[Rfam]
RNA sequence: AGAAGCAGGGCUUCUGUGGUGGGCAUAUAGGUUCAGAUUACAAACUAGCCAUGGGAGUUGUAGCAAAAGCUAUGGUACUGAGCGCAUGUGGAAAAGGCAACAUUCUCAU
Numbered sequence: 001a002g003a004a005g006c007a008g009g010g011c012u013u014c015u016g017u018g019g020u021g022g023g024c025a026u027a028u029a030g031g032u033u034c035a036g037a038u039u040a041c042a043a044a045c046u047a048g049c050c051a052u053g054g055g056a057g058u059u060g061u062a063g064c065a066a067a068a069g070c071u072a073u074g075g076u077a078c079u080g081a082g083c084g085c086a087u088g089u090g091g092a093a094a095a096g097g098c099a100a101c102a103u104u105c106u107c108a109u
Base pairs, nucleotide, nucleotide: 001015002014003013004012005011016041017040018039019038020037023034025032026031049090050088051087052086053085054079055078057076058075059074061072062071063070064069
Notes: Rfam assigns this 109-nucleotide RNA from Natranaerovirga hydrolytica to the family "Group II catalytic intron D1-D4-2". Rfam 15.1 lists 1,231 matches to the family in 625 species. The pairing is the family consensus, mapped onto this sequence. It scores 51 bits against the family's covariance model.